RNA sequence: AUAAAAGGAAGUUCGACUAGGAUCGUCACAUCCUGUGACAACAUCGAACGACCCCACAUCGUGUGGG
Numbered sequence: 001a002u003a004a005a006a007g008g009a010a011g012u013u014c015g016a017c018u019a020g021g022a023u024c025g026u027c028a029c030a031u032c033c034u035g036u037g038a039c040a041a042c043a044u045c046g047a048a049c050g051a052c053c054c055c056a057c058a059u060c061g062u063g064u065g066g067g
Base pairs, nucleotide, nucleotide: 011049012048013047014046015045016044025039026038027037028036029035053067054066055065056064057063
Rfam assigns this 67-nucleotide RNA from Pontibacillus chungwhensis to the family "Bacillaceae-1 RNA". NCBI's taxonomy places the organism under Bacteria, Bacilli, Caryophanales, Pontibacillus, Pontibacillus chungwhensis. By type it is a small RNA. It scores 63 bits against the family's covariance model.